Shown here is a 102-nucleotide RNA from Pseudomonas paraeruginosa, a member of the family "Pseudomonas rnk leader". It is annotated as a cis-regulatory leader. Lineage of the source: Bacteria > Pseudomonadati > Pseudomonadota > Pseudomonadales > Pseudomonas paraeruginosa. Rfam's curators put it in the seed alignment. For this family Rfam cites "Premature terminator analysis sheds light on a hidden world of bacterial transcriptional attenuation" (Naville and Gautheret, Genome Biol, 2010).
RNA sequence: CGCAGGCGGGCCGUCUCUCCUGAUAGGGGGGAUGUUGCUAAUUCCUGCGACUGUGUUAGUGUCCGGGAAAACCCCGCCUUCGGGCGGGGUUUUUGCUUUUUU
Numbered sequence: 001c002g003c004a005g006g007c008g009g010g011c012c013g014u015c016u017c018u019c020c021u022g023a024u025a026g027g028g029g030g031g032a033u034g035u036u037g038c039u040a041a042u043u044c045c046u047g048c049g050a051c052u053g054u055g056u057u058a059g060u061g062u063c064c065g066g067g068a069a070a071a072c073c074c075c076g077c078c079u080u081c082g083g084g085c086g087g088g089g090u091u092u093u094u095g096c097u098u099u100u101u102u
Stems, first nucleotide, its partner, number of pairs: 002048005016031006067094012